Background
Rfam assigns this 46-nucleotide sequence from Spodoptera exigua to the family "Histone 3' UTR stem-loop". The mRNAs of metazoan histone genes lack a poly-A tail. 3' end processing occurs at a site between a highly conserved stem-loop (modelled by this family) and a purine rich region around 20 nts downstream (the histone downstream element, or HDE). The stem-loop is bound by a 31 kDa stem-loop binding protein (SLBP - also termed the histone hairpin binding protein, or HBP). Together with U7 snRNA binding of the HDE, SLBP binding nucleate s the formation of the processing complex. The histone 3' UTR stem-loop is also involved in nucleocytoplasmic transport of the mRNA, and in stability regulation and translation efficiency in the cytoplasm. A reference for the family is Williams and Marzluff (1995), "The sequence of the stem and flanking sequences at the 3' end of histone mRNA are critical determinants for the binding of the stem-loop binding protein", Nucleic Acids Res. Taxonomically the source falls in Spodoptera (Eukaryota, Bilateria, Pancrustacea, Dicondylia). The family's consensus secondary structure is taken from published work. By type it is a cis-regulatory element.
[Rfam]
RNA sequence: CAAACGGCCCUUUUCAGGGCCACAAAAUGAUUCGUCGAUAAACAUU
Numbered sequence: 001c002a003a004a005c006g007g008c009c010c011u012u013u014u015c016a017g018g019g020c021c022a023c024a025a026a027a028u029g030a031u032u033c034g035u036c037g038a039u040a041a042a043c044a045u046u
Stems, first nucleotide, its partner, number of pairs: 006021006